[Rfam]
RNA sequence: GCCGCGCCUAGUUCGACGGGACGAAAACCGGGUGCCCUACCCGGCUGGCGCGGCUCCUGAGUAGGGC
Numbered sequence: 001g002c003c004g005c006g007c008c009u010a011g012u013u014c015g016a017c018g019g020g021a022c023g024a025a026a027a028c029c030g031g032g033u034g035c036c037c038u039a040c041c042c043g044g045c046u047g048g049c050g051c052g053g054c055u056c057c058u059g060a061g062u063a064g065g066g067c
Base pairs, nucleotide, nucleotide: 001054002053003052004051005050006049007048008047011022012021013020014019028044029043030042031041032040034067035066036065037064038063039062
RNA: int-alpA RNA
Organism: Burkholderia pseudomallei